[Rfam]
This 201-nucleotide sequence from Terrihalobacillus insolitus belongs to the Rfam family "Group II catalytic intron D1-D4-5". Its family is annotated with Group II intron splicing in the Gene Ontology. From the family's description: Group II introns are found in rRNA, tRNA and mRNA of organelles in fungi, plants and protists, and also in mRNA in bacteria.
RNA sequence: UUGAAGGAUUAUAUCGAAGAAUCAAAUGAAGAGGUAACACUCGGAAGAGUUCUCUCUUAGUCGAUUAGCACUGGAUUCAGUAAGGAUGAUAGUGUUAAGAGCUCGGUGAAAAGGCGUAAAAAUUUACCGUAACAGUGAAGUUUAGCUGACGAAAGCCUACCCGAGGGGGUGUUUUGGUUUAGCAUCUCCUCAUGCAACCCA
Number, nucleotide and partner (000 for none) at each position: 001u000002u000003g000004a000005a000006g000007g000008a000009u000010u000011a000012u000013a000014u000015c000016g000017a000018a053019g052020a051021a050022u049023c000024a000025a000026a000027u000028g000029a000030a000031g000032a000033g041034g040035u000036a000037a000038c000039a000040c034041u033042c000043g000044g000045a000046a000047g000048a000049g022050u021051u020052c019053u018054c000055u192056c000057u000058u000059a000060g000061u106062c105063g104064a103065u098066u097067a096068g095069c094070a093071c092072u091073g090074g000075a000076u000077u086078c085079a000080g000081u000082a000083a000084g000085g078086a077087u000088g000089a000090u073091a072092g071093u070094g069095u068096u067097a066098a065099g000100a000101g000102c000103u064104c063105g062106g061107u000108g000109a000110a000111a000112a000113g189114g188115c000116g186117u000118a000119a000120a000121a180122a179123u000124u177125u176126a175127c000128c151129g150130u149131a000132a000133c000134a147135g146136u000137g000138a000139a000140g000141u000142u000143u000144a000145g000146c135147u134148g000149a130150c129151g128152a000153a000154a000155g174156c000157c000158u171159a170160c169161c168162c167163g000164a000165g000166g000167g162168g161169g160170u159171g158172u000173u000174u155175u126176g125177g124178u000179u122180u121181a000182g000183c000184a000185u000186c116187u000188c114189c113190u000191c000192a055193u000194g000195c000196a000197a000198c000199c000200c000201a000